[Rfam]
Shown here is an 83-nucleotide RNA from Crocodylus porosus, a member of the family "Mammalian CPEB3 ribozyme". The mammalian CPEB3 ribozyme is a self cleaving RNA located in the second intron of the CPEB3 gene which belongs to a family of genes regulating messenger RNA polyadenylation. This ribozyme is highly conserved and found only in mammals. The CPEB3 ribozyme is structurally and biochemically related to the human hepatitis delta virus (HDV) ribozyme and the HDV ribozyme is proposed to have arisen from the human transcriptome. NCBI's taxonomy places the organism under Eukaryota, Vertebrata, Teleostomi, Sauria, Crocodylus.
RNA sequence: UGCUGCUCUUGAGGGGCCAUAGGAGAGGCAUUCAUAUCACAACCCCUGUCAGGUAAUGCCAAGUAAUACCUGAAAAUUCUGCU
Numbered sequence: 001u002g003c004u005g006c007u008c009u010u011g012a013g014g015g016g017c018c019a020u021a022g023g024a025g026a027g028g029c030a031u032u033c034a035u036a037u038c039a040c041a042a043c044c045c046c047u048g049u050c051a052g053g054u055a056a057u058g059c060c061a062a063g064u065a066a067u068a069c070c071u072g073a074a075a076a077u078u079c080u081g082c083u
Stems, first nucleotide, its partner, number of pairs: 013046004021083002024080004028040001050072006